[Rfam]
RNA sequence: ACCCGUAGAUGCCUGUGUGGCGAUGUUUUCGGACAGGGGUUCGACUCCCCUCGCCUCCAUCUUGAAACCCGCUCCUGGAGCGGGUUUUUCUGUGAAAUCAACCAUAAUUUUGCCGCCUUGGCAAGGAUAUGCUUGAUUUAGUGUAUGGCAGCAAUAUGCUUGAUUUUUUAAAUUGUUUUUACACGGGGGCGUUAUUGGAUUCGACAGGAGUAGUACGAACAUGAAUAGCGGGUAGUGGGGACGCGUCCACUAUAACAACGCUAAAGCCUAUUAAACGGCAAACAACAACCAACUUACGCUUUAGCAGCUUAA
Numbered sequence: 001a002c003c004c005g006u007a008g009a010u011g012c013c014u015g016u017g018u019g020g021c022g023a024u025g026u027u028u029u030c031g032g033a034c035a036g037g038g039g040u041u042c043g044a045c046u047c048c049c050c051u052c053g054c055c056u057c058c059a060u061c062u063u064g065a066a067a068c069c070c071g072c073u074c075c076u077g078g079a080g081c082g083g084g085u086u087u088u089u090c091u092g093u094g095a096a097a098u099c100a101a102c103c104a105u106a107a108u109u110u111u112g113c114c115g116c117c118u119u120g121g122c123a124a125g126g127a128u129a130u131g132c133u134u135g136a137u138u139u140a141g142u143g144u145a146u147g148g149c150a151g152c153a154a155u156a157u158g159c160u161u162g163a164u165u166u167u168u169u170a171a172a173u174u175g176u177u178u179u180u181a182c183a184c185g186g187g188g189g190c191g192u193u194a195u196u197g198g199a200u201u202c203g204a205c206a207g208g209a210g211u212a213g214u215a216c217g218a219a220c221a222u223g224a225a226u227a228g229c230g231g232g233u234a235g236u237g238g239g240g241a242c243g244c245g246u247c248c249a250c251u252a253u254a255a256c257a258a259c260g261c262u263a264a265a266g267c268c269u270a271u272u273a274a275a276c277g278g279c280a281a282a283c284a285a286c287a288a289c290c291a292a293c294u295u296a297c298g299c300u301u302u303a304g305c306a307g308c309u310u311a312a
Stems, first nucleotide, its partner, number of pairs: 001233005014223004027210002029207001031205001035051005052191007234251004
About this RNA: Rfam assigns this 312-nucleotide RNA from Paenibacillus sp. GP183 to the family "permuted transfer-messenger RNA". The match comes from Rfam's covariance-model search (80 bits). The literature on the family includes a 1996 paper in RNA by Williams and Bartel, "Phylogenetic analysis of tmRNA secondary structure".